[Rfam]
RNA sequence: CCAUUUACGUGGACGGGGUCUUUACGGGUGAUCAUGAAUGUCUGUGGCCUAGAUUAGAGUUCUUCAUUGCACUUUGAAGAGGCUCUGAUCUACCAUCUGCCCAAGUGGUAAGAUGGAUGUCAUAAUUUAUGGCAGGGGAGUUCGCGUCCGCGCGGCCCCUA
Numbered sequence: 001c002c003a004u005u006u007a008c009g010u011g012g013a014c015g016g017g018g019u020c021u022u023u024a025c026g027g028g029u030g031a032u033c034a035u036g037a038a039u040g041u042c043u044g045u046g047g048c049c050u051a052g053a054u055u056a057g058a059g060u061u062c063u064u065c066a067u068u069g070c071a072c073u074u075u076g077a078a079g080a081g082g083c084u085c086u087g088a089u090c091u092a093c094c095a096u097c098u099g100c101c102c103a104a105g106u107g108g109u110a111a112g113a114u115g116g117a118u119g120u121c122a123u124a125a126u127u128u129a130u131g132g133c134a135g136g137g138g139a140g141u142u143c144g145c146g147u148c149c150g151c152g153c154g155g156c157c158c159c160u161a
Stems, first nucleotide, its partner, number of pairs: 012121004016050005025044005051091003055088001057085003061081001063079001064077002093116003096112001098110001100108002136160003140156001143154004
This 161-nucleotide RNA sequence from Dendrobium nobile belongs to the Rfam family "U1 spliceosomal RNA". It is annotated as a spliceosomal small nuclear RNA. The base pairs follow the family's consensus structure, which is taken from published work. Rfam describes the family as follows. U1 is a small nuclear RNA (snRNA) component of the spliceosome (involved in pre-mRNA splicing). Its 5' end forms complementary base pairs with the 5' splice junction, thus defining the 5' donor site of an intron. There are significant differences in sequence and secondary structure between metazoan and yeast U1 snRNAs, the latter being much longer (568 nucleotides as compared to 164 nucleotides in human). Nevertheless, secondary structure predictions suggest that all U1 snRNAs share a 'common core' consisting of helices I, II, the proximal region of III, and IV. This family does not contain the larger yeast sequences. The family has 100 seed sequences and 40,184 matches in Rfam 15.1.